Nucleotides: 054
Stems, first nucleotide, its partner, number of pairs: 003018006042053004
Number, partner (000 for none) and nucleotide at each position: 001000a002000g003018g004017c005016a006015g007014g008013g009000a010000c011000g012000a013008c014007c015006u016005u017004g018003c019000g020000g021000c022000u023000c024000a025000c026000u027000c028000g029000a030000g031000c032000a033000a034000u035000u036000c037000a038000a039000u040000c041000c042053g043052g044051g045050g046000a047000c048000g049000g050045c051044c052043c053042c054000a